Annotation
The family of this 111-nucleotide sequence from Ipomoea nil is "Small nucleolar RNA snoR109". The organism belongs to Ipomoea, within Eukaryota. It is annotated as an H/ACA-box small nucleolar RNA.

RNA sequence: UGGCUGUAGCUAUAUCAAGUUAUUCUAGGAGUUAUCUGGCCGGUUGUUUUUGGUGUUCCUUGAUCGGGAUCCCUACUGUAAACAUAUCUGCUUACCGAACUCCACACAUAU
Numbered sequence: 001u002g003g004c005u006g007u008a009g010c011u012a013u014a015u016c017a018a019g020u021u022a023u024u025c026u027a028g029g030a031g032u033u034a035u036c037u038g039g040c041c042g043g044u045u046g047u048u049u050u051u052g053g054u055g056u057u058c059c060u061u062g063a064u065c066g067g068g069a070u071c072c073c074u075a076c077u078g079u080a081a082a083c084a085u086a087u088c089u090g091c092u093u094a095c096c097g098a099a100c101u102c103c104a105c106a107c108a109u110a111u
Stems, first nucleotide, its partner, number of pairs: 028103006038092003042088003046083004